RNA sequence: AGCCAUAUGGUGAGCACAAAGCGAACUAUUCUUUCGCCUUUUACUAAAGAAUACCGUGUGCUCUCCAUGUUAAGUGGCAUACGUCUAUUUUUGGAGGGUUCUACUUUCGAGUGGAU
Numbered sequence: 001a002g003c004c005a006u007a008u009g010g011u012g013a014g015c016a017c018a019a020a021g022c023g024a025a026c027u028a029u030u031c032u033u034u035c036g037c038c039u040u041u042u043a044c045u046a047a048a049g050a051a052u053a054c055c056g057u058g059u060g061c062u063c064u065c066c067a068u069g070u071u072a073a074g075u076g077g078c079a080u081a082c083g084u085c086u087a088u089u090u091u092u093g094g095a096g097g098g099u100u101c102u103a104c105u106u107u108c109g110a111g112u113g114g115a116u
Base pairs, nucleotide, nucleotide: 003077004076005075006074008067009066010065012063013062014061015060016059017058018057027053028052029051030050031049032048033047034046095116100115101114102113103112104111105110
Shown here is a 116-nucleotide RNA from Brassica carinata, a member of the family "U5 spliceosomal RNA".
The match comes from Rfam's covariance-model search (87 bits).
The base pairs follow the family's consensus structure, which is taken from published work.
Gene Ontology terms of the family: U5 snRNP and spliceosomal tri-snRNP complex assembly.
NCBI's taxonomy places the organism under Eukaryota, Tracheophyta, Brassicales, Brassicaceae, Brassica.
Rfam classes the family as a spliceosomal small nuclear RNA.